[Rfam]
This 95-nucleotide RNA belongs to the Rfam family "TPP riboswitch aptamer (THI element)".
RNA sequence: GCAGCGUACAGCGGGUGCCCCUAACAGGGCUGAGAUUACACCGUUUGAACUCGAUCAAGCUAGUACUUGCGUGAGAAAUGUAUGUUGCUCUAGGU
Numbered sequence: 001g002c003a004g005c006g007u008a009c010a011g012c013g014g015g016u017g018c019c020c021c022u023a024a025c026a027g028g029g030c031u032g033a034g035a036u037u038a039c040a041c042c043g044u045u046u047g048a049a050c051u052c053g054a055u056c057a058a059g060c061u062a063g064u065a066c067u068u069g070c071g072u073g074a075g076a077a078a079u080g081u082a083u084g085u086u087g088c089u090c091u092a093g094g095u
Base pairs, nucleotide, nucleotide: 006083007082008081009080010079011044012043013042014041016038017030018029019028020027050075051074052073053072056069057068058067059066